Annotation
The record is a 68-nucleotide sequence from Pseudomonas fluorescens, which matches "Repression of heat shock gene expression (ROSE) element" in Rfam. A reference for the family is Krajewski et al. (2013), "Short ROSE-Like RNA Thermometers Control IbpA Synthesis in Pseudomonas Species", PLoS One.
RNA sequence: UACGCGAUGCCGAAUUCGGGUCGCGGAGAUAACCACUCGCUGAAUAAUCAGGAGAAACACCCAUGAGU
Numbered sequence: 001u002a003c004g005c006g007a008u009g010c011c012g013a014a015u016u017c018g019g020g021u022c023g024c025g026g027a028g029a030u031a032a033c034c035a036c037u038c039g040c041u042g043a044a045u046a047a048u049c050a051g052g053a054g055a056a057a058c059a060c061c062c063a064u065g066a067g068u
Stems, first nucleotide, its partner, number of pairs: 001027001003025006010019003036054003040051004
Dot-bracket structure: (.((((((.(((....))))))))).)........(((.((((....)))))))..............